Source information:
A member of the RNA family "Lysine riboswitch aptamer" from Salisediminibacterium halotolerans, 180 nucleotides long. The source organism's lineage runs through Bacteria, Bacillati, Bacillota, Caryophanales and Salisediminibacterium. From the family's description: Riboswitches are metabolite binding domains within certain messenger RNAs that serve as precision sensors for their corresponding targets.
Nucleotides: 180
Base pairs, nucleotide, nucleotide: 006175007174008173009172010171011170016081017080018079019078020077021076022075023074024073032066033065034064035063036062037061038060085114086113087112088111089110090109091108092107093106094105095104096103115142116141117140118139119138120137121136122135125132144165145164146163147162149160150159
Number, partner (000 for none) and nucleotide at each position: 001000a002000g003000u004000g005000a006175a007174g008173g009172u010171a011170g012000a013000g014000g015000u016081g017080c018079a019078a020077a021076a022075c023074a024073g025000a026000u027000c028000a029000g030000u031000c032066g033065g034064u035063c036062c037061u038060u039000g040000g041000a042000g043000u044000a045000c046000g047000g048000g049000g050000u051000a052000a053000c054000g055000a056000g057000g058000a059000a060038g061037a062036g063035g064034a065033u066032u067000u068000a069000a070000a071000g072000g073024c074023u075022g076021u077020u078019u079018u080017g081016c082000c083000g084000a085114a086113g087112u088111c089110u090109g091108c092107a093106g094105u095104g096103a097000u098000c099000u100000c101000c102000a103096u104095c105094a106093u107092u108091g109090c110089a111088g112087g113086c114085u115142g116141g117140u118139u119138c120137c121136g122135g123000c124000a125132u126000u127000g128000a129000a130000c131000a132125a133000a134000u135122c136121c137120g138119g139118a140117a141116c142115u143000g144165u145164c146163g147162u148000c149160c150159a151000g152000c153000a154000u155000u156000u157000g158000c159150u160149g161000a162147a163146c164145g165144a166000g167000g168000a169000g170011c171010u172009a173008u174007c175006u176000g177000c178000u179000u180000a